[Rfam]
RNA sequence: GCGGAUGGCUGGACGGUCGCGGGCGGCAACGCUCGAGGAAAGUCCGGACUCCAUGACGGCAACGGUGCCGGGUAACACCCGGCGGGGGCAACCCCAGGGAAAGCGCCACAGAGAAGAGACUACCCUGCGUGCAGGGGAAAGGUGAAACGGUGGGGUAAGAGCCCACCGCGCGACCGGCAACGGAAGCGGCACGGCAAGCCCCACCGGGAGCAAUGCCAAAUAGGGGCCUUGCGCCGGUGUGAUCCAGCGAUGGAUAUCCCGGCAGGGACGCCUGACCCGAAAGGCCCGGGUUGGCAGCUAGAGGGUCGUCGGCAACGGCGGCUUUAGAUGAAUGAUCGUCCAGCCGCCGCAAGGCGGUGGACAGAAUCCGGCUUACAGGCCAUCCGCACAU
Numbered sequence: 001g002c003g004g005a006u007g008g009c010u011g012g013a014c015g016g017u018c019g020c021g022g023g024c025g026g027c028a029a030c031g032c033u034c035g036a037g038g039a040a041a042g043u044c045c046g047g048a049c050u051c052c053a054u055g056a057c058g059g060c061a062a063c064g065g066u067g068c069c070g071g072g073u074a075a076c077a078c079c080c081g082g083c084g085g086g087g088g089c090a091a092c093c094c095c096a097g098g099g100a101a102a103g104c105g106c107c108a109c110a111g112a113g114a115a116g117a118g119a120c121u122a123c124c125c126u127g128c129g130u131g132c133a134g135g136g137g138a139a140a141g142g143u144g145a146a147a148c149g150g151u152g153g154g155g156u157a158a159g160a161g162c163c164c165a166c167c168g169c170g171c172g173a174c175c176g177g178c179a180a181c182g183g184a185a186g187c188g189g190c191a192c193g194g195c196a197a198g199c200c201c202c203a204c205c206g207g208g209a210g211c212a213a214u215g216c217c218a219a220a221u222a223g224g225g226g227c228c229u230u231g232c233g234c235c236g237g238u239g240u241g242a243u244c245c246a247g248c249g250a251u252g253g254a255u256a257u258c259c260c261g262g263c264a265g266g267g268a269c270g271c272c273u274g275a276c277c278c279g280a281a282a283g284g285c286c287c288g289g290g291u292u293g294g295c296a297g298c299u300a301g302a303g304g305g306u307c308g309u310c311g312g313c314a315a316c317g318g319c320g321g322c323u324u325u326a327g328a329u330g331a332a333u334g335a336u337c338g339u340c341c342a343g344c345c346g347c348c349g350c351a352a353g354g355c356g357g358u359g360g361a362c363a364g365a366a367u368c369c370g371g372c373u374u375a376c377a378g379g380c381c382a383u384c385c386g387c388a389c390a391u
Base pairs, nucleotide, nucleotide: 001387002386003385004384005383006382007381008380009379010378011376012340013339014338015337016336017335018334020035021034022033023032024031025030040374041373042372044371045370046369047368048367049210050209051208052207058273059272063206064205065204066203067202068082069081070080071079072078083097084095085094086093087092098201099200103199104198105195106194107193120141121140123136124135125134126133127132149167150166151165152164153163154162168190169188170187171186174183175182176181214296215295216294217293224287225286226285227284228283229282265278266277267276269274304323305322306321307320308319309318310317311316
RNA: Bacterial RNase P class A